[Rfam]
RNA sequence: CGGGGGAGGCCGGAUCCUGGGCUGUGUCCCAGCGCCCUGUGCUCCCUGCGCUGUUGGAUUCGCGCUCCCGCCCCGCAGCCCCUC
Numbered sequence: 001c002g003g004g005g006g007a008g009g010c011c012g013g014a015u016c017c018u019g020g021g022c023u024g025u026g027u028c029c030c031a032g033c034g035c036c037c038u039g040u041g042c043u044c045c046c047u048g049c050g051c052u053g054u055u056g057g058a059u060u061c062g063c064g065c066u067c068c069c070g071c072c073c074c075g076c077a078g079c080c081c082c083u084c
Stems, first nucleotide, its partner, number of pairs: 002083005009076002012072002017070001019068003023064004027058003030053006039046001041045001
RNA: mir-8799 microRNA precursor family